[Rfam]
RNA sequence: UCGUCAGGCUCAGUCCCCUCCCGAUAAACCCCUAAAUAGGGUCCUUUCCCGGAGCAGACCCCGGCUU
Numbered sequence: 001u002c003g004u005c006a007g008g009c010u011c012a013g014u015c016c017c018c019u020c021c022c023g024a025u026a027a028a029c030c031c032c033u034a035a036a037u038a039g040g041g042u043c044c045u046u047u048c049c050c051g052g053a054g055c056a057g058a059c060c061c062c063g064g065c066u067u
Stems, first nucleotide, its partner, number of pairs: 003065003007061002010058002015054001017052002023047002026045001030041004
Dot-bracket structure: ..(((.((.((...(.((....((.(...((((....))))...)))...)).)..)).)).)))..
Shown here is a 67-nucleotide RNA sequence from Acinonyx jubatus, a member of the family "mir-484 microRNA precursor family".
The family's consensus secondary structure was predicted with RNAalifold.
Taxonomically the source falls in Acinonyx (Eukaryota, Bilateria, Gnathostomata, Sarcopterygii).
A search with the family's covariance model found it, with a score of 68 bits.
On this family, see Fu et al., FEBS Lett 2005: "Identification of human fetal liver miRNAs by a novel method".